[Rfam]
RNA sequence: UGAUGUUAUGAUGAUGGGCAACAUGUUCAACUGCUCUGAAUGGGCUGAAUGAAAAUAGCCUUUCUGAACAUCA
Numbered sequence: 001u002g003a004u005g006u007u008a009u010g011a012u013g014a015u016g017g018g019c020a021a022c023a024u025g026u027u028c029a030a031c032u033g034c035u036c037u038g039a040a041u042g043g044g045c046u047g048a049a050u051g052a053a054a055a056u057a058g059c060c061u062u063u064c065u066g067a068a069c070a071u072c073a
Stems, first nucleotide, its partner, number of pairs: 002072005